Guanidine-I riboswitch aptamer: a 141-nucleotide sequence from Planktothrix agardhii. Taxonomically the source falls in Planktothrix agardhii (Bacteria, Bacillati, Cyanobacteriota, Planktothrix). Gene Ontology term of the family: regulation of gene expression. Rfam's curators write: This family represents a conserved RNA structure found upstream of the ykkC and yxkD genes in Bacillus subtilis and related genes in other bacteria.
RNA sequence: AUUAAUUGCUUCUAGGGUUCCGGUUUGCUGCAAAUUGCUGAAAACGCCAGGUCCGAGAGAAGCAAGCUAUCCUGGAUUCAGAUUUUAGGAAUCCGUUCUUCAAAAAGGGUAGCUACACGGCGGGAAAAAAGCCCGGGAGAA
Numbered sequence: 001a002u003u004a005a006u007u008g009c010u011u012c013u014a015g016g017g018u019u020c021c022g023g024u025u026u027g028c029u030g031c032a033a034a035u036u037g038c039u040g041a042a043a044a045c046g047c048c049a050g051g052u053c054c055g056a057g058a059g060a061a062g063c064a065a066g067c068u069a070u071c072c073u074g075g076a077u078u079c080a081g082a083u084u085u086u087a088g089g090a091a092u093c094c095g096u097u098c099u100u101c102a103a104a105a106a107g108g109g110u111a112g113c114u115a116c117a118c119g120g121c122g123g124g125a126a127a128a129a130a131g132c133c134c135g136g137g138a139g140a141a
Stems, first nucleotide, its partner, number of pairs: 007064006015054002020051002022048001023045004028040001065114008116136001118139001122134003